[Rfam]
The record is a 72-nucleotide RNA sequence from Desulforhabdus amnigena, which matches "Fluoride riboswitch aptamer (crcB RNA motif)" in Rfam. Lineage of the source: Bacteria > Thermodesulfobacteriota > Syntrophobacteria > Syntrophobacterales > Desulforhabdus.
RNA sequence: UAUCCCACAGGUGAUGAGGUCCGCCGGACAACCGCCCCGGCCGUUUUUGGGGCUGAUGACUUCUACUUCCAG
Numbered sequence: 001u002a003u004c005c006c007a008c009a010g011g012u013g014a015u016g017a018g019g020u021c022c023g024c025c026g027g028a029c030a031a032c033c034g035c036c037c038c039g040g041c042c043g044u045u046u047u048u049g050g051g052g053c054u055g056a057u058g059a060c061u062u063c064u065a066c067u068u069c070c071a072g
Stems, first nucleotide, its partner, number of pairs: 010025004016063006034053007